[Rfam]
RNA sequence: AUUUUAGUAUAAAUAUUCCAUGCAAUAUUUGGGAUAUACUUAUACUAAAA
Numbered sequence: 001a002u003u004u005u006a007g008u009a010u011a012a013a014u015a016u017u018c019c020a021u022g023c024a025a026u027a028u029u030u031g032g033g034a035u036a037u038a039c040u041u042a043u044a045c046u047a048a049a050a
Stems, first nucleotide, its partner, number of pairs: 006046007014038002016034004020029001
mir-1302 microRNA precursor family: a 50-nucleotide RNA from Diceros bicornis.
Its family is annotated with miRNA-mediated post-transcriptional gene silencing and RISC complex in the Gene Ontology.
The organism belongs to Diceros bicornis, within Eukaryota.